[Rfam]
RNA sequence: GAUAAUUGUGGGCAAACCUAUCGAAAGAUAGGGACGCAAAGCUAUGGGUCUGUUGGCGAGCUUCGCCUAUGAUUGCCAGGUUGCCAGA
Numbered sequence: 001g002a003u004a005a006u007u008g009u010g011g012g013c014a015a016a017c018c019u020a021u022c023g024a025a026a027g028a029u030a031g032g033g034a035c036g037c038a039a040a041g042c043u044a045u046g047g048g049u050c051u052g053u054u055g056g057c058g059a060g061c062u063u064c065g066c067c068u069a070u071g072a073u074u075g076c077c078a079g080g081u082u083g084c085c086a087g088a
Stems, first nucleotide, its partner, number of pairs: 012037002017032006040082004045078003048073003055067004

The record is an 88-nucleotide RNA from Heliophilum fasciatum, which matches "c-di-GMP-I riboswitch aptamer" in Rfam.
Rfam links the family to the GO term cyclic-di-GMP binding.
The family's consensus secondary structure is taken from published work.
The organism belongs to Heliophilum, within Bacteria.